[Rfam]
RNA sequence: AGCUUCUCUGGGCUUCUUUACAGUGUUGCCUUGUAGCGUUGUGAUCAAGCAGCAUUGUACAGGGCUAUCAGAGCAGCC
Numbered sequence: 001a002g003c004u005u006c007u008c009u010g011g012g013c014u015u016c017u018u019u020a021c022a023g024u025g026u027u028g029c030c031u032u033g034u035a036g037c038g039u040u041g042u043g044a045u046c047a048a049g050c051a052g053c054a055u056u057g058u059a060c061a062g063g064g065c066u067a068u069c070a071g072a073g074c075a076g077c078c
Stems, first nucleotide, its partner, number of pairs: 014064004019059010030049004
A member of the RNA family "mir-103/107 microRNA precursor family" from Electrophorus electricus, 78 nucleotides long. Rfam describes the family as follows. This family consists of the mammalian microRNA (miRNA) precursors mir-103 and mir107. Animal miRNAs are transcribed as ~70nt precursors and subsequently processed by the Dicer enzyme to give a ~22nt product. Rfam 15.1 lists 1,982 matches to the family in 645 species.